The record is a 140-nucleotide RNA sequence from Cricetulus griseus, which matches "Small nucleolar RNA SNORA29" in Rfam. Rfam's curators write: ACA29 is a member of the H/ACA class of snoRNA that guide the sites of modification of uridines to pseudouridines. Rfam links the family to the GO terms RNA processing and nucleolus. The match comes from Rfam's covariance-model search (147 bits). It is annotated as an H/ACA-box small nucleolar RNA. Clan: SNORA20 clan. Lineage of the source: Eukaryota > Amniota > Eutheria > Rodentia > Cricetulus. The family's consensus secondary structure was predicted with PFOLD.
RNA sequence: AGUCCCACUUGACUACCACAUUUUCUCUUCAUAAUAAAUUUUGGUGGCUAUGCUUAUGGGAUAGAUUAAAGGUGCCACGAUCUGAAGAGUGAGGGCUUUCCACUUUCUUCCCUCUAUAUGAAAUGGCUGAACAUAAAAAA
Numbered sequence: 001a002g003u004c005c006c007a008c009u010u011g012a013c014u015a016c017c018a019c020a021u022u023u024u025c026u027c028u029u030c031a032u033a034a035u036a037a038a039u040u041u042u043g044g045u046g047g048c049u050a051u052g053c054u055u056a057u058g059g060g061a062u063a064g065a066u067u068a069a070a071g072g073u074g075c076c077a078c079g080a081u082c083u084g085a086a087g088a089g090u091g092a093g094g095g096c097u098u099u100c101c102a103c104u105u106u107c108u109u110c111c112c113u114c115u116a117u118a119u120g121a122a123a124u125g126g127c128u129g130a131a132c133a134u135a136a137a138a139a140a
Stems, first nucleotide, its partner, number of pairs: 004060004016047004074127004092115004